Rfam assigns this 77-nucleotide RNA from Alligator sinensis to the family "Mammalian CPEB3 ribozyme". The organism belongs to Alligator, within Eukaryota. Its family is annotated with RNA nuclease activity in the Gene Ontology.
[Rfam]
RNA sequence: AGCCGAGAGUUUGAGGUCACAGCAGAAGCGCUCAUGGUGCAGCCAUGUCAGAGUCCAGCAAAUCUGAGAAUUUUGCU
Numbered sequence: 001a002g003c004c005g006a007g008a009g010u011u012u013g014a015g016g017u018c019a020c021a022g023c024a025g026a027a028g029c030g031c032u033c034a035u036g037g038u039g040c041a042g043c044c045a046u047g048u049c050a051g052a053g054u055c056c057a058g059c060a061a062a063u064c065u066g067a068g069a070a071u072u073u074u075g076c077u
Stems, first nucleotide, its partner, number of pairs: 015044003021077007028040003049066004054061001